[Rfam]
RNA: mir-27 microRNA precursor family
Organism: Anolis carolinensis
Nucleotides: 073
Base pairs, nucleotide, nucleotide: 008065009064010063011062012061013060014059015058016057017056023052024051025050026049027048028047029046
Number, partner (000 for none) and nucleotide at each position: 001000a002000g003000c004000c005000g006000u007000a008065g009064g010063g011062c012061u013060u014059a015058g016057c017056c018000c019000a020000c021000c022000u023052g024051u025050g026049a027048a028047c029046a030000g031000c032000a033000u034000u035000g036000g037000a038000u039000u040000c041000a042000g043000c044000c045000a046029u047028g048027u049026u050025c051024a052023c053000a054000g055000u056017g057016g058015c059014u060013a061012a062011g063010u064009u065008c066000c067000g068000c069000u070000g071000c072000u073000u